[Rfam]
RNA: ALIL pseudoknot
Organism: Rhodococcus sp. 1168
RNA sequence: GGUUUUCUUCGCAGCGGAGCUCGACCGCCCACGCAAGUGAUCUGCGCGUUCAUCGACGCGAAAAAAGAUCAGUACGGGGUCGAGCCGAUCUGCCGCGUUCUCUCCGAACACGGGUGCAAGAUCGCCCCG
Numbered sequence: 001g002g003u004u005u006u007c008u009u010c011g012c013a014g015c016g017g018a019g020c021u022c023g024a025c026c027g028c029c030c031a032c033g034c035a036a037g038u039g040a041u042c043u044g045c046g047c048g049u050u051c052a053u054c055g056a057c058g059c060g061a062a063a064a065a066a067g068a069u070c071a072g073u074a075c076g077g078g079g080u081c082g083a084g085c086c087g088a089u090c091u092g093c094c095g096c097g098u099u100c101u102c103u104c105c106g107a108a109c110a111c112g113g114g115u116g117c118a119a120g121a122u123c124g125c126c127c128c129g
Stems, first nucleotide, its partner, number of pairs: 014028004075129005086124002089121003